[Rfam]
RNA sequence: GCAUGGACGAAUUCUGCACUAGCCUUCCUCAGUAGCUAAUGCAGUCAGACACUAUGCCAGAAUAAAUUCCUUUUUCACACUCCGAUUGGUAUGCUUUUUAUAUGAGAAUGGGCAUGCCCUUGGAAGUGGGAUACAU
Numbered sequence: 001g002c003a004u005g006g007a008c009g010a011a012u013u014c015u016g017c018a019c020u021a022g023c024c025u026u027c028c029u030c031a032g033u034a035g036c037u038a039a040u041g042c043a044g045u046c047a048g049a050c051a052c053u054a055u056g057c058c059a060g061a062a063u064a065a066a067u068u069c070c071u072u073u074u075u076c077a078c079a080c081u082c083c084g085a086u087u088g089g090u091a092u093g094c095u096u097u098u099u100a101u102a103u104g105a106g107a108a109u110g111g112g113c114a115u116g117c118c119c120u121u122g123g124a125a126g127u128g129g130g131a132u133a134c135a136u
Base pairs, nucleotide, nucleotide: 001057002056003055004054005053006052014044015043016042017041018040070129071128073126074125075124076123083122084121085120088118089117090116091115092114093113094112095111096110